[Rfam]
RNA sequence: GUAGAGUAAUAAGAAAUCCCACAUAUAAGUCGAAGAAUAGGCUUUGAUGUUUCUACAGGGCACCGGAAUGUCCUAACUAUGCGGGAAAGUGACUUUUGA
Number, nucleotide and partner (000 for none) at each position: 001g000002u000003a000004g000005a000006g000007u000008a000009a000010u000011a000012a000013g000014a000015a000016a000017u000018c085019c084020c083021a000022c081023a080024u079025a078026u000027a000028a000029g048030u047031c046032g045033a044034a043035g042036a000037a000038u000039a000040g000041g000042c035043u034044u033045u032046g031047a030048u029049g000050u000051u000052u000053c000054u000055a000056c000057a074058g073059g072060g071061c070062a069063c000064c000065g000066g000067a000068a000069u062070g061071u060072c059073c058074u057075a000076a000077c000078u025079a024080u023081g022082c000083g020084g019085g018086a000087a000088a000089g000090u000091g000092a000093c000094u000095u000096u000097u000098g000099a000

This 99-nucleotide sequence from Savagea serpentis belongs to the Rfam family "Purine riboswitch aptamer".